SAM-III riboswitch aptamer (SMK box): an 80-nucleotide sequence from Enterococcus lacertideformus. Lineage of the source: Bacteria > Bacillota > Lactobacillales > Enterococcaceae > Enterococcus. The family's consensus secondary structure is taken from published work. For this family Rfam cites "Riboswitches that sense S-adenosylmethionine and S-adenosylhomocysteine" (Wang and Breaker, Biochem Cell Biol, 2008).
RNA sequence: GUUCGUUGCAAGUUCCCGAGAGGAUCCGUUAUGUGCGGAGAUGCCUUGUAACCGAAAUUAACUAGGGGGAAUCACUUAUG
Numbered sequence: 001g002u003u004c005g006u007u008g009c010a011a012g013u014u015c016c017c018g019a020g021a022g023g024a025u026c027c028g029u030u031a032u033g034u035g036c037g038g039a040g041a042u043g044c045c046u047u048g049u050a051a052c053c054g055a056a057a058u059u060a061a062c063u064a065g066g067g068g069g070a071a072u073c074a075c076u077u078a079u080g
Stems, first nucleotide, its partner, number of pairs: 013071005020047004025039005052066002